Rfam assigns this 110-nucleotide RNA from Streptococcus sp. DD13 to the family "PyrR binding site". It is annotated as a cis-regulatory element. A search with the family's covariance model found it, with a score of 55 bits.
RNA sequence: UUAUCCUUUAAACUUACCCCGUGAGGUAGGCAAGGUGCAACAGUAGAAAAAGUGGUUUUUCACUAUGUUUUUGUGUAGCCUUGUAGAGCUGGAUACAAGGCUUUUUUUGU
Numbered sequence: 001u002u003a004u005c006c007u008u009u010a011a012a013c014u015u016a017c018c019c020c021g022u023g024a025g026g027u028a029g030g031c032a033a034g035g036u037g038c039a040a041c042a043g044u045a046g047a048a049a050a051a052g053u054g055g056u057u058u059u060u061c062a063c064u065a066u067g068u069u070u071u072u073g074u075g076u077a078g079c080c081u082u083g084u085a086g087a088g089c090u091g092g093a094u095a096c097a098a099g100g101c102u103u104u105u106u107u108u109g110u
Stems, first nucleotide, its partner, number of pairs: 005035004013030006045070003049066001051064005073106001075104001077102009